[Rfam]
RNA sequence: CCGCGAGGACGACCUCGAUUCACUCACAUAUCCGCAGGGACGGCCCUG
Numbered sequence: 001c002c003g004c005g006a007g008g009a010c011g012a013c014c015u016c017g018a019u020u021c022a023c024u025c026a027c028a029u030a031u032c033c034g035c036a037g038g039g040a041c042g043g044c045c046c047u048g
Stems, first nucleotide, its partner, number of pairs: 002017001005016004035048005
Guanidine-II riboswitch aptamer (mini-ykkC): a 48-nucleotide RNA sequence from Afipia broomeae. Its family is annotated with regulation of gene expression in the Gene Ontology. It scores 35 bits against the family's covariance model. The source organism's lineage runs through Bacteria, Pseudomonadati, Alphaproteobacteria, Hyphomicrobiales and Afipia broomeae.